[Rfam]
RNA sequence: CUCUUAUCUUUUAAAAGUUUCAAGUUGGUCCCUUACCUUUAUUUUAGGUUUCAAGUUGGUCCAUUCCCUCAAUUUUUUUACUGUUACUGUUAAAAUUGGACACGUGUCAUCUGUCCAAGUGUGUCACACUGCCACGUGUCCAAAUUUAACGGAAAUAGUUACAAAAUUGACGGAAGGGACCAACUUGAAACCUAAAAUAAAGAUAAGGGACCAACUUGAAACUUUUAAAAGAUAAAGGA
Numbered sequence: 001c002u003c004u005u006a007u008c009u010u011u012u013a014a015a016a017g018u019u020u021c022a023a024g025u026u027g028g029u030c031c032c033u034u035a036c037c038u039u040u041a042u043u044u045u046a047g048g049u050u051u052c053a054a055g056u057u058g059g060u061c062c063a064u065u066c067c068c069u070c071a072a073u074u075u076u077u078u079u080a081c082u083g084u085u086a087c088u089g090u091u092a093a094a095a096u097u098g099g100a101c102a103c104g105u106g107u108c109a110u111c112u113g114u115c116c117a118a119g120u121g122u123g124u125c126a127c128a129c130u131g132c133c134a135c136g137u138g139u140c141c142a143a144a145u146u147u148a149a150c151g152g153a154a155a156u157a158g159u160u161a162c163a164a165a166a167u168u169g170a171c172g173g174a175a176g177g178g179a180c181c182a183a184c185u186u187g188a189a190a191c192c193u194a195a196a197a198u199a200a201a202g203a204u205a206a207g208g209g210a211c212c213a214a215c216u217u218g219a220a221a222c223u224u225u226u227a228a229a230a231g232a233u234a235a236a237g238g239a
Stems, first nucleotide, its partner, number of pairs: 002237001004235005023216003027212003031208005037202007045194003

The record is a 239-nucleotide RNA sequence from Trifolium subterraneum, which matches "MIR2655 microRNA precursor family" in Rfam. Pairs were carried over by alignment from the consensus structure, which was predicted with RNAalifold.